Bacterial small subunit ribosomal RNA: a 581-nucleotide part of an RNA. Gene Ontology terms of the family: ribosome and structural constituent of ribosome. It scores 653 bits against the family's covariance model.
RNA sequence: AGACCGUUUCUGAAACCAGUAGUGAAGUAUGUUAUUUAAUUCGUUAAUCCUCGAAAAACCUUACCACAAUUUGAAUAAUAUAUUUAUAAAUAUAUUACAAGCGUUGCACGGCUGUCUUCAGUUAAUGUCGUGAGAUUUUGGUUAACUCCAUAAAAUUAACGGAAACCCUUGCUUUAUUUACAAAAUAUUAUAAUAAGGCAGUCCACUAGAAUAACGGAUAAGAUAACAGGGAUCAAGACAAGUCAUCAUGGCCUUAAUAUUGUGGGCUAUAGACGUGCCACAUAUUCCUAUACAAAGAGAUGCGAAAAUGCGAAUUUAAGCUAAUCUCAUAAAGUAGGAUAUAAUAAGGAUUGUAGUCUGAAACUCGACUACAUGAAUAAGGAAUUACUAGUAAUCGUGAAUCACCACGUCACGGUGGAUUUAAUCUCAGAUAGGUACUAACUACUCGUCAGGCGCCGAAAGAAGUAUGUGCAAUAAGUUUGGUCUACUAUUAUUUUAUAUACCCUAAAUAAAUAGAUUUAGAGAUUUUAAUAGAAGGCUUUCGUAUGCGUGACUUUGAUUGGUGUUAAGUCGAAAUAUGG
Dot-bracket structure: (((((.(.(((((.....((((((..(((((((((....((((........))))........(((((((.....(((((((((....)))))))))..((.((((...((((((((...(((((((((....)))..(((......)))....)))))).....((((.(((((((...............)))))))..(..(.(.(.....).).)..).....))))....)))).)))...).))))))....)))))))...)).)))))))..)....((((((.....(((..((...(((....)))...))....))).....)))))).......(....(((((((........)))))))....).....))))).....(((((((.........)))))))..........))))).)))).))..(.(..((...((((((((..(((((.((((((....(...(..((.................................................)).)...)...)))))))))))..))))))))....))...)..).